[Rfam]
RNA sequence: GGUACCAAAUCCUAUCUCCACCUCCACGGGGUGGCGGCUGGGAGCUCUUUCUUAACGAAAAGCUGCAGAGGGAGAAGG
Dot-bracket structure: ..........(((.(.((((((.......)))..........((((.((.(.....))).)))).....))).).)))

Record summary
The family of this 78-nucleotide RNA sequence from Hermetia illucens is "drz-agam-1 ribozyme". The organism belongs to Hermetia, within Eukaryota.